[Rfam]
RNA sequence: CUUGAACGAGCCCAGCCACAGCGGCCGGUCCGUUCCGGCGCGCUCCUUGCCGUAGGUGGCGAGCAGCGCCUGGGCCUC
Numbered sequence: 001c002u003u004g005a006a007c008g009a010g011c012c013c014a015g016c017c018a019c020a021g022c023g024g025c026c027g028g029u030c031c032g033u034u035c036c037g038g039c040g041c042g043c044u045c046c047u048u049g050c051c052g053u054a055g056g057u058g059g060c061g062a063g064c065a066g067c068g069c070c071u072g073g074g075c076c077u078c
Stems, first nucleotide, its partner, number of pairs: 015025003034074003041068002046063003050059003
The record is a 78-nucleotide RNA from Streptomyces albiflaviniger, which matches "ASpks TB sRNA" in Rfam. NCBI's taxonomy places the organism under Bacteria, Actinomycetes, Kitasatosporales, Streptomycetaceae, Streptomyces.